[Rfam]
RNA sequence: ACCUAGGGUAGAGGUGCUGUAUGUUAAUAGUACUCAUGAGUAACUGGCAAGUGAUGAUACAUGAGAAAAGGAACAGCAGCCGAAGAGAAUGUAAAGCAAAAUAUAUUCUCUGGCUAUACGUAUAAGAUAUGUAUAGUUGUCACUUAUAUAGUAAGUGGAGAGCUACAAGGUGA
Numbered sequence: 001a002c003c004u005a006g007g008g009u010a011g012a013g014g015u016g017c018u019g020u021a022u023g024u025u026a027a028u029a030g031u032a033c034u035c036a037u038g039a040g041u042a043a044c045u046g047g048c049a050a051g052u053g054a055u056g057a058u059a060c061a062u063g064a065g066a067a068a069a070g071g072a073a074c075a076g077c078a079g080c081c082g083a084a085g086a087g088a089a090u091g092u093a094a095a096g097c098a099a100a101a102u103a104u105a106u107u108c109u110c111u112g113g114c115u116a117u118a119c120g121u122a123u124a125a126g127a128u129a130u131g132u133a134u135a136g137u138u139g140u141c142a143c144u145u146a147u148a149u150a151g152u153a154a155g156u157g158g159a160g161a162g163c164u165a166c167a168a169g170g171u172g173a
Stems, first nucleotide, its partner, number of pairs: 008166004016080005023074003033065006040058001084111010112138011140158007
RNA: Lysine riboswitch aptamer